The record is a 145-nucleotide sequence from Bacteroides faecichinchillae, which matches "Bacteroidete tryptophan peptide leader RNA" in Rfam. Rfam links the family to the GO terms S-adenosylmethionine metabolic process and regulation of gene expression. Lineage of the source: Bacteria > Pseudomonadati > Bacteroidota > Bacteroidaceae > Bacteroides. A search with the family's covariance model found it, with a score of 109 bits. The family's RNA type in Rfam is cis-regulatory leader.
RNA sequence: GCGAAUUAAAGAAAAAAGAUAUGAGAACAAUGUUAGUAAAUACAUAUUGGUGGUGGCGCCCGUUACAACUCCGACAGUCGUAAGGGAGCAGUGCUCGUAUGUAUAUACUUCAUUAAAGAUAUAAGAUAUUUGAAAGAGCCCUGUC
Numbered sequence: 001g002c003g004a005a006u007u008a009a010a011g012a013a014a015a016a017a018g019a020u021a022u023g024a025g026a027a028c029a030a031u032g033u034u035a036g037u038a039a040a041u042a043c044a045u046a047u048u049g050g051u052g053g054u055g056g057c058g059c060c061c062g063u064u065a066c067a068a069c070u071c072c073g074a075c076a077g078u079c080g081u082a083a084g085g086g087a088g089c090a091g092u093g094c095u096c097g098u099a100u101g102u103a104u105a106u107a108c109u110u111c112a113u114u115a116a117a118g119a120u121a122u123a124a125g126a127u128a129u130u131u132g133a134a135a136g137a138g139c140c141c142u143g144u145c
Stems, first nucleotide, its partner, number of pairs: 036108003040104008049095004056089002059086003066080001068078003